[Rfam]
RNA sequence: GCCAAGCGGUGAUGAUGACGACAUUAUGUCUCUUUCCUGAAAAUGACUGAUGGUUUUAAGUCACUACCUCAUCUGAGCUUGCU
Numbered sequence: 001g002c003c004a005a006g007c008g009g010u011g012a013u014g015a016u017g018a019c020g021a022c023a024u025u026a027u028g029u030c031u032c033u034u035u036c037c038u039g040a041a042a043a044u045g046a047c048u049g050a051u052g053g054u055u056u057u058a059a060g061u062c063a064c065u066a067c068c069u070c071a072u073c074u075g076a077g078c079u080u081g082c083u
Stems, first nucleotide, its partner, number of pairs: 003081005
The record is an 83-nucleotide sequence from Sparus aurata, which matches "Small nucleolar RNA SNORD11B" in Rfam.
Gene Ontology terms of the family: nucleolus and RNA processing.
NCBI's taxonomy places the organism under Eukaryota, Gnathostomata, Teleostomi, Actinopterygii, Sparus.
A search with the family's covariance model found it, with a score of 63 bits.